[Rfam]
RNA sequence: AUGGAGAUGAUGACAAUUUCCCCAGAUGAUCGAAACUGUUUAUACUGAGCGAAUUAGAACUUAUUCUCAACAGAGUAAAGUCGAGCCAAUUAGUCUGAUCCUU
Numbered sequence: 001a002u003g004g005a006g007a008u009g010a011u012g013a014c015a016a017u018u019u020c021c022c023c024a025g026a027u028g029a030u031c032g033a034a035a036c037u038g039u040u041u042a043u044a045c046u047g048a049g050c051g052a053a054u055u056a057g058a059a060c061u062u063a064u065u066c067u068c069a070a071c072a073g074a075g076u077a078a079a080g081u082c083g084a085g086c087c088a089a090u091u092a093g094u095c096u097g098a099u100c101c102u103u
Base pairs, nucleotide, nucleotide: 001103003101004100005099
RNA: Small nucleolar RNA Z103